[Rfam]
RNA sequence: AUCGUUCAUCUAUUCAAAUAGACGGAAGUACCUAUCAAGGGGAAGGAACGCACU
Numbered sequence: 001a002u003c004g005u006u007c008a009u010c011u012a013u014u015c016a017a018a019u020a021g022a023c024g025g026a027a028g029u030a031c032c033u034a035u036c037a038a039g040g041g042g043a044a045g046g047a048a049c050g051c052a053c054u
Stems, first nucleotide, its partner, number of pairs: 003050005009022005025051001031041003